Shown here is a 96-nucleotide RNA sequence from Rhynchospora breviuscula, a member of the family "Small nucleolar RNA snoR27".
Rfam links the family to the GO terms nucleolus and RNA processing.
The family has 6 seed sequences and 649 matches in Rfam 15.1.
By type it is a C/D-box small nucleolar RNA.
It scores 46 bits against the family's covariance model.

RNA sequence: UUUGGAUCUAUGAUGCGACUAUUGUGCGUUUACUUUCAGCAAACUUCCAUUUAAAAGUUGGAUUUGUUGACAAAUACUAGCUUACUGAGAUCCAAA
Numbered sequence: 001u002u003u004g005g006a007u008c009u010a011u012g013a014u015g016c017g018a019c020u021a022u023u024g025u026g027c028g029u030u031u032a033c034u035u036u037c038a039g040c041a042a043a044c045u046u047c048c049a050u051u052u053a054a055a056a057g058u059u060g061g062a063u064u065u066g067u068u069g070a071c072a073a074a075u076a077c078u079a080g081c082u083u084a085c086u087g088a089g090a091u092c093c094a095a096a
Stems, first nucleotide, its partner, number of pairs: 001096009